[Rfam]
RNA: Small nucleolar RNA snoR109
RNA sequence: UGGCUGUAGCUAAAUUAGAUUUGAGAAGUUAACUGGCCGGUUGCUGUUAUCUGUCAACAAAUCUGCUUACCGAAGUUCUUUUACAU
Numbered sequence: 001u002g003g004c005u006g007u008a009g010c011u012a013a014a015u016u017a018g019a020u021u022u023g024a025g026a027a028g029u030u031a032a033c034u035g036g037c038c039g040g041u042u043g044c045u046g047u048u049a050u051c052u053g054u055c056a057a058c059a060a061a062u063c064u065g066c067u068u069a070c071c072g073a074a075g076u077u078c079u080u081u082u083a084c085a086u
Stems, first nucleotide, its partner, number of pairs: 023080005029074002035067003039063004043058001045056002